A member of the RNA family "Plastid-rps12 3UTR RNA" from Crocus sativus, 87 nucleotides long. For this family Rfam cites "Retrograde signaling in plants: A critical review focusing on the GUN pathway and beyond" (Richter et al., Plant Commun, 2023). Rfam's curators write: Plastid rpl20 is a non-coding RNA (ncRNA) recognised in plastids. The base pairs follow the family's consensus structure, which was predicted with LocARNA. Rfam's curators put it in the seed alignment. The family has 1,299 seed sequences and 1,710 matches in Rfam 15.1.
RNA sequence: GGUUUCUGUUGGUGCAAAUCCAACCGACCCCAGAAUAAAUUCCCCAUUGGUAGCAAAUAGUUAUCCAUUAAGCGGAGGAAAUAGUAC
Numbered sequence: 001g002g003u004u005u006c007u008g009u010u011g012g013u014g015c016a017a018a019u020c021c022a023a024c025c026g027a028c029c030c031c032a033g034a035a036u037a038a039a040u041u042c043c044c045c046a047u048u049g050g051u052a053g054c055a056a057a058u059a060g061u062u063a064u065c066c067a068u069u070a071a072g073c074g075g076a077g078g079a080a081a082u083a084g085u086a087c
Stems, first nucleotide, its partner, number of pairs: 009023004042077001044075002046068002049065006